[Rfam]
The record is a 75-nucleotide sequence, which matches "S6-S18-Chlorobi ribosomal protein leader" in Rfam. The sequence is in the family's curated seed alignment. The family's RNA type in Rfam is cis-regulatory leader. The family's consensus secondary structure is taken from published work.
RNA sequence: AUUUGCGGUGUGUUGCGUUUAUUGCGUGAAGCUUGGGUCCGGUGUGCGCAAUCCCGGAACCUCGCGUCUGCAAGC
Numbered sequence: 001a002u003u004u005g006c007g008g009u010g011u012g013u014u015g016c017g018u019u020u021a022u023u024g025c026g027u028g029a030a031g032c033u034u035g036g037g038u039c040c041g042g043u044g045u046g047c048g049c050a051a052u053c054c055c056g057g058a059a060c061c062u063c064g065c066g067u068c069u070g071c072a073a074g075c
Stems, first nucleotide, its partner, number of pairs: 002074005007068006013030001014028005035062004039057004
Dot-bracket structure: .(((((((((((((((((.....))))).)....((((((((...........)))).)))))))))).))))).